RNA: U11 spliceosomal RNA
RNA sequence: AAAAAGGGUGCUCGCUACUUUAAUAGCGCGUUAGUUCGUUUAUUGACGAAUUAGCGGGGUAUGGCUAUCAAGACAUACCCAGUACGUAAUUUUUGUAAAUGCGAGGCUGUUGGCUGCCAGUUCGCACCGACGCCUCC
Numbered sequence: 001a002a003a004a005a006g007g008g009u010g011c012u013c014g015c016u017a018c019u020u021u022a023a024u025a026g027c028g029c030g031u032u033a034g035u036u037c038g039u040u041u042a043u044u045g046a047c048g049a050a051u052u053a054g055c056g057g058g059g060u061a062u063g064g065c066u067a068u069c070a071a072g073a074c075a076u077a078c079c080c081a082g083u084a085c086g087u088a089a090u091u092u093u094u095g096u097a098a099a100u101g102c103g104a105g106g107c108u109g110u111u112g113g114c115u116g117c118c119a120g121u122u123c124g125c126a127c128c129g130a131c132g133c134c135u136c137c
Base pairs, nucleotide, nucleotide: 008085009084010083011082012081013028014027015026016025017024029056030055031054032053033052034051035050036049037048038047039046040045057080058079059078060077061076062075063074104135105134106133107132109131110130111129112128113127115126116125117124